[Rfam]
RNA sequence: GGUCUCAAGUUAGAGGCCAUAGCAGAAGCACUCGCAGUACAGCCCUGUCAGAUUCCAAUGAAUCUAUUAAUUCUGCU
Numbered sequence: 001g002g003u004c005u006c007a008a009g010u011u012a013g014a015g016g017c018c019a020u021a022g023c024a025g026a027a028g029c030a031c032u033c034g035c036a037g038u039a040c041a042g043c044c045c046u047g048u049c050a051g052a053u054u055c056c057a058a059u060g061a062a063u064c065u066a067u068u069a070a071u072u073c074u075g076c077u
Stems, first nucleotide, its partner, number of pairs: 013045001015044003021077007028040001030038001050065006
RNA: Mammalian CPEB3 ribozyme
Organism: Alligator sinensis